[Rfam]
RNA sequence: GUCAGGAGAGAGCCCCGCCAGACGGGGCCGCCGAAGGCGCAGGGCCCCGCAUUGCAAGGGCCCGAACGCUCAGGCAAAAGGACUGGC
Numbered sequence: 001g002u003c004a005g006g007a008g009a010g011a012g013c014c015c016c017g018c019c020a021g022a023c024g025g026g027g028c029c030g031c032c033g034a035a036g037g038c039g040c041a042g043g044g045c046c047c048c049g050c051a052u053u054g055c056a057a058g059g060g061c062c063c064g065a066a067c068g069c070u071c072a073g074g075c076a077a078a079a080g081g082a083c084u085g086g087c
Base pairs, nucleotide, nucleotide: 001087002086003085004084005083012028013027014026015025030075031074032073033071034070037069038068039067043063044062